[Rfam]
Rfam assigns this 684-nucleotide RNA sequence from Saccharomyces paradoxus to the family "RNA of unknown function 21".
The sequence is in the family's curated seed alignment.
Nucleotides: 684
Base pairs, nucleotide, nucleotide: 046675047674048673049672050671051670052669053668057120058119059118060117061116062073063072064071065070077087078086141664142663143662144661145660146659147658171535172534173533174532175531176530177529178528179527180526181525227240228239229238230237281514282513283512284511308335309334310333311332312331313330314329341435342434343433344432345431346430347429574641575640577638578637579636586629587628588627589626590625591624592623
Number, partner (000 for none) and nucleotide at each position: 001000g002000u003000u004000u005000u006000c007000c008000a009000u010000u011000u012000u013000c014000u015000a016000c017000a018000a019000a020000u021000u022000a023000a024000a025000a026000a027000a028000a029000g030000a031000a032000a033000a034000a035000a036000a037000a038000c039000c040000g041000a042000a043000a044000u045000a046675g047674u048673g049672a050671a051670a052669a053668a054000u055000u056000c057120g058119g059118g060117g061116u062073u063072g064071g065070c066000c067000u068000u069000g070065g071064c072063u073062a074000a075000a076000c077087u078086g079000a080000c081000c082000c083000a084000c085000c086078c087077a088000c089000a090000a091000u092000u093000u094000a095000u096000c097000c098000a099000a100000a101000a102000a103000a104000u105000u106000u107000a108000u109000c110000c111000a112000c113000c114000u115000a116061a117060c118059c119058c120057c121000a122000g123000a124000u125000c126000a127000c128000u129000g130000c131000a132000a133000a134000c135000g136000a137000a138000a139000u140000g141664u142663a143662u144661a145660u146659c147658a148000c149000u150000a151000u152000u153000c154000a155000c156000g157000c158000g159000u160000g161000g162000u163000u164000c165000c166000a167000a168000u169000u170000a171535u172534g173533g174532c175531g176530g177529c178528u179527a180526g181525a182000u183000g184000a185000c186000g187000a188000a189000g190000g191000c192000u193000u194000g195000a196000u197000c198000a199000g200000c201000u202000a203000c204000u205000g206000c207000u208000g209000u210000a211000a212000a213000a214000u215000a216000a217000u218000g219000a220000a221000a222000c223000u224000a225000a226000a227240a228239g229238c230237g231000c232000c233000g234000u235000a236000u237230u238229g239228u240227u241000g242000a243000u244000a245000a246000u247000c248000u249000a250000c251000c252000c253000a254000u255000g256000g257000c258000a259000u260000g261000u262000a263000c264000a265000g266000g267000g268000a269000a270000c271000a272000g273000u274000g275000u276000g277000c278000u279000u280000g281514u282513g283512a284511g285000a286000g287000g288000g289000a290000c291000a292000a293000u294000c295000c296000a297000a298000a299000g300000c301000a302000g303000u304000a305000g306000g307000u308335u309334u310333u311332u312331g313330u314329u315000u316000a317000u318000g319000a320000u321000u322000g323000g324000u325000u326000u327000a328000u329314a330313a331312c332311a333310g334309a335308a336000u337000u338000u339000u340000g341435g342434g343433g344432a345431a346430a347429a348000a349000g350000g351000g352000g353000g354000a355000c356000a357000c358000c359000a360000u361000a362000a363000g364000u365000g366000c367000a368000u369000g370000u371000u372000u373000c374000a375000a376000a377000a378000c379000u380000a381000u382000u383000a384000a385000u386000a387000u388000g389000u390000u391000g392000u393000a394000g395000c396000c397000u398000u399000c400000u401000u402000u403000c404000u405000u406000c407000a408000a409000a410000c411000a412000u413000u414000g415000c416000a417000c418000u419000c420000u421000g422000u423000u424000g425000u426000u427000g428000c429347u430346u431345u432344u433343c434342c435341u436000u437000a438000a439000g440000a441000a442000a443000u444000c445000u446000u447000u448000u449000c450000u451000c452000c453000a454000a455000a456000u457000a458000a459000c460000a461000c462000c463000u464000u465000g466000a467000u468000u469000c470000u471000u472000u473000u474000u475000u476000a477000u478000c479000g480000g481000u482000c483000u484000c485000c486000u487000u488000a489000u490000a491000u492000a493000u494000a495000u496000a497000u498000a499000u500000a501000u502000a503000u504000a505000c506000c507000a508000a509000u510000a511284c512283u513282c514281g515000g516000g517000g518000u519000g520000u521000c522000u523000u524000u525181u526180u527179u528178a529177g530176c531175c532174g533173c534172c535171g536000a537000u538000g539000u540000g541000a542000g543000g544000a545000u546000c547000g548000a549000a550000a551000a552000u553000c554000a555000u556000u557000a558000u559000c560000u561000c562000g563000a564000a565000a566000g567000g568000g569000u570000a571000a572000a573000g574641g575640u576000u577638g578637u579636u580000a581000a582000g583000a584000u585000a586629g587628u588627a589626u590625a591624u592623a593000c594000a595000u596000a597000u598000a599000c600000a601000u602000a603000u604000a605000c606000a607000u608000a609000u610000a611000u612000a613000u614000a615000u616000a617000u618000a619000c620000a621000u622000a623592u624591a625590u626589a627588u628587a629586u630000a631000u632000a633000u634000u635000g636579a637578a638577u639000u640575a641574c642000a643000u644000a645000c646000u647000u648000c649000a650000a651000u652000a653000a654000g655000g656000a657000a658147u659146g660145g661144u662143a663142u664141a665000a666000g667000a668053u669052u670051u671050u672049u673048c674047g675046u676000a677000c678000g679000g680000u681000a682000a683000u684000a